The record is a 105-nucleotide RNA from Neorhizobium sp. S3-V5DH, which matches "Repression of heat shock gene expression (ROSE) element" in Rfam. Its family is annotated with regulation of translation and response to temperature stimulus in the Gene Ontology. This family represents a 5' UTR cis-regulatory element found in heat shock mRNAs and is known as the ROSE (repression of heat shock gene expression) element. The ROSE element is a negative regulator of heat shock gene expression. The secondary structure is thought to be regulated by temperature. The family's consensus secondary structure is taken from published work.
[Rfam]
RNA sequence: CCGGCUGCCAAAGCGGGGCCGCUUCGUUAAUCAGGCGUCGAGGGCGUCUGAAUCAGACGCUGUCUUGUACCCAUGUUGCUUCAAAGGAGGAUGUGGCUAUGAGAA
Numbered sequence: 001c002c003g004g005c006u007g008c009c010a011a012a013g014c015g016g017g018g019c020c021g022c023u024u025c026g027u028u029a030a031u032c033a034g035g036c037g038u039c040g041a042g043g044g045c046g047u048c049u050g051a052a053u054c055a056g057a058c059g060c061u062g063u064c065u066u067g068u069a070c071c072c073a074u075g076u077u078g079c080u081u082c083a084a085a086g087g088a089g090g091a092u093g094u095g096g097c098u099a100u101g102a103g104a105a
Stems, first nucleotide, its partner, number of pairs: 002021005008016002041063001043061008064103006071096007079089003
Taxonomically the source falls in Neorhizobium (Bacteria, Pseudomonadati, Pseudomonadota, Hyphomicrobiales).
A search with the family's covariance model found it, with a score of 52 bits.